[Rfam]
RNA: CpoB/ybgF ICR thermometer
RNA sequence: CAAAUUGCUAUCGUGUCUUAUGGUAAGGAAAAACCGGCUGUACUAGGUCACGACGAAUCAGCAUAUGCUAAAAAUCGUCGUGCGGUACUGGCAUAUUAAGAGUAUUACAUGAACAGUAACUUCAGACAUCUUUAUUUG
Numbered sequence: 001c002a003a004a005u006u007g008c009u010a011u012c013g014u015g016u017c018u019u020a021u022g023g024u025a026a027g028g029a030a031a032a033a034c035c036g037g038c039u040g041u042a043c044u045a046g047g048u049c050a051c052g053a054c055g056a057a058u059c060a061g062c063a064u065a066u067g068c069u070a071a072a073a074a075u076c077g078u079c080g081u082g083c084g085g086u087a088c089u090g091g092c093a094u095a096u097u098a099a100g101a102g103u104a105u106u107a108c109a110u111g112a113a114c115a116g117u118a119a120c121u122u123c124a125g126a127c128a129u130c131u132u133u134a135u136u137u138g
Base pairs, nucleotide, nucleotide: 002044006040007039013034014033016031018029019028053137057133061129064126066124067123074117075116077114078112079111080110081109082108085105086104087103088102089101